Background:
This 181-nucleotide sequence from Pseudanabaena sp. FACHB-2040 belongs to the Rfam family "c-di-AMP riboswitch aptamer (ydaO/yuaA leader)". The source organism's lineage runs through Bacteria, Cyanobacteriota, Cyanophyceae, Pseudanabaenaceae and Pseudanabaena.

RNA sequence: AGCCUAAUUCAGCCGUUUCGGGUUUUUAAGAACUUCAAAGCGGUUGAAGCGGAGGAACCACUCUUUGGGGCGUGUCUUGGAAAAAAGGUCAGGUGUCGUCAGAUGCUCUGCCAGUAUCCAAGAGGGACAUCUCUCAGUCCUAGCCCGUCAGCUAACUUCGUCGGCAUUGAGAGGAGACUGG
Numbered sequence: 001a002g003c004c005u006a007a008u009u010c011a012g013c014c015g016u017u018u019c020g021g022g023u024u025u026u027u028a029a030g031a032a033c034u035u036c037a038a039a040g041c042g043g044u045u046g047a048a049g050c051g052g053a054g055g056a057a058c059c060a061c062u063c064u065u066u067g068g069g070g071c072g073u074g075u076c077u078u079g080g081a082a083a084a085a086a087g088g089u090c091a092g093g094u095g096u097c098g099u100c101a102g103a104u105g106c107u108c109u110g111c112c113a114g115u116a117u118c119c120a121a122g123a124g125g126g127a128c129a130u131c132u133c134u135c136a137g138u139c140c141u142a143g144c145c146c147g148u149c150a151g152c153u154a155a156c157u158u159c160g161u162c163g164g165c166a167u168u169g170a171g172a173g174g175a176g177a178c179u180g181g
Stems, first nucleotide, its partner, number of pairs: 002165003008048011049161006059067002068146003076122006125140004